[Rfam]
RNA: c-di-GMP-I riboswitch aptamer
RNA sequence: UUACGAUAAAGGCAAAUGUGCUGAAAGGCACUGACGCAAAGCUAAAGGGACUACAUCAGGAUGAGCCUGACAAGUCAGCCAGCUGCUCGU
Numbered sequence: 001u002u003a004c005g006a007u008a009a010a011g012g013c014a015a016a017u018g019u020g021c022u023g024a025a026a027g028g029c030a031c032u033g034a035c036g037c038a039a040a041g042c043u044a045a046a047g048g049g050a051c052u053a054c055a056u057c058a059g060g061a062u063g064a065g066c067c068u069g070a071c072a073a074g075u076c077a078g079c080c081a082g083c084u085g086c087u088c089g090u
Base pairs, nucleotide, nucleotide: 012037013036018031019030020029021028022027040084041083042082043081047080048079049076050075051074056070057069058068059067